[Rfam]
RNA sequence: GUAUCUGAAAUCAAGCAGGAUCACCCGCUGAACUUAAGCAUAUCACUAAGCGGAGGAGAAGAAAUUAACUAAGAUUGCCUCAGUAACGGCGAGUGAAGCGGCAAAAGCCCAAACUGUAAAUCUUGUGCACUACGUGUACACGAAUUGUAAUCUAGAGAGAGUUCACUCAACGGGCGGGGGCGCAGAAGUGACCACGAACGGUCCGCCAGAGAGGGUGAAAGCCCCGUAUGUGGUGUCCCUGCUUAACGAGUGGGUUUUCGAAGAGUCGGGUUGUUUUGUAUUGCAGCCCUAAGUGGGAGAUAAACUUCUUCUAAGGCUAAAUAUUAAUAGGAAACCGAUAGCGAACAAGUACUGUGAAGGAAAGAUGAAAAGAACUUUGAAAAGAGAGUCAAAAGACUUGAAAUCGUUGAGAAGGAAG
Numbered sequence: 001g002u003a004u005c006u007g008a009a010a011u012c013a014a015g016c017a018g019g020a021u022c023a024c025c026c027g028c029u030g031a032a033c034u035u036a037a038g039c040a041u042a043u044c045a046c047u048a049a050g051c052g053g054a055g056g057a058g059a060a061g062a063a064a065u066u067a068a069c070u071a072a073g074a075u076u077g078c079c080u081c082a083g084u085a086a087c088g089g090c091g092a093g094u095g096a097a098g099c100g101g102c103a104a105a106a107g108c109c110c111a112a113a114c115u116g117u118a119a120a121u122c123u124u125g126u127g128c129a130c131u132a133c134g135u136g137u138a139c140a141c142g143a144a145u146u147g148u149a150a151u152c153u154a155g156a157g158a159g160a161g162u163u164c165a166c167u168c169a170a171c172g173g174g175c176g177g178g179g180g181c182g183c184a185g186a187a188g189u190g191a192c193c194a195c196g197a198a199c200g201g202u203c204c205g206c207c208a209g210a211g212a213g214g215g216u217g218a219a220a221g222c223c224c225c226g227u228a229u230g231u232g233g234u235g236u237c238c239c240u241g242c243u244u245a246a247c248g249a250g251u252g253g254g255u256u257u258u259c260g261a262a263g264a265g266u267c268g269g270g271u272u273g274u275u276u277u278g279u280a281u282u283g284c285a286g287c288c289c290u291a292a293g294u295g296g297g298a299g300a301u302a303a304a305c306u307u308c309u310u311c312u313a314a315g316g317c318u319a320a321a322u323a324u325u326a327a328u329a330g331g332a333a334a335c336c337g338a339u340a341g342c343g344a345a346c347a348a349g350u351a352c353u354g355u356g357a358a359g360g361a362a363a364g365a366u367g368a369a370a371a372g373a374a375c376u377u378u379g380a381a382a383a384g385a386g387a388g389u390c391a392a393a394a395g396a397c398u399u400g401a402a403a404u405c406g407u408u409g410a411g412a413a414g415g416a417a418g
Stems, first nucleotide, its partner, number of pairs: 024055001025053005035042002065072002076103004086094002106318004113151001115149005121143002124140004157259002159256002162253001164252004174242007183232002188204001190203004207211001214224002268289007295312005352359002375386004
Source information:
Rfam assigns this 418-nucleotide part of an RNA from Sterkiella histriomuscorum to the family "Eukaryotic large subunit ribosomal RNA".